[Rfam]
RNA sequence: CGUGUUGAGGUAGCCGCCCGCCACAGUCACAGUCUCACACCCUUUGACUGGCGAUUGUCCAGUGGUGGCUAAGAUCAAUGUC
Dot-bracket structure: ...((((....((((((((...((((((.(((((...........)))))..))))))...).))))))).....))))...
RNA: mir-4599 microRNA precursor family
Organism: Petromyzon marinus